Shown here is a 105-nucleotide RNA from Martelella endophytica, a member of the family "Alphaproteobacterial ar15". Pairs were carried over by alignment from the consensus structure. The family's RNA type in Rfam is small RNA. Rfam links the family to the GO term protein binding. Clan: suhB sRNA clan. It scores 80 bits against the family's covariance model.
Nucleotides: 105
Base pairs, nucleotide, nucleotide: 001042002041003040004039005038007036008035009034015032016031017030018029052068053067054066055065056064057063058062077099078098079097080096081095082093084091085090
Number, partner (000 for none) and nucleotide at each position: 001042a002041g003040c004039u005038g006000a007036u008035g009034c010000g011000u012000u013000g014000g015032g016031c017030a018029g019000u020000g021000a022000u023000u024000c025000u026000u027000c028000a029018c030017u031016g032015c033000u034009g035008c036007a037000g038005c039004a040003g041002c042001u043000g044000u045000u046000c047000c048000c049000c050000u051000c052068u053067g054066g055065a056064g057063g058062u059000u060000u061000u062058a063057c064056c065055u066054u067053c068052a069000c070000a071000c072000c073000u074000a075000u076000a077099a078098a079097g080096g081095g082093c083000c084091c085090c086000u087000u088000u089000u090085g091084g092000a093082g094000g095081c096080c097079c098078u099077u100000c101000u102000u103000u104000u105000u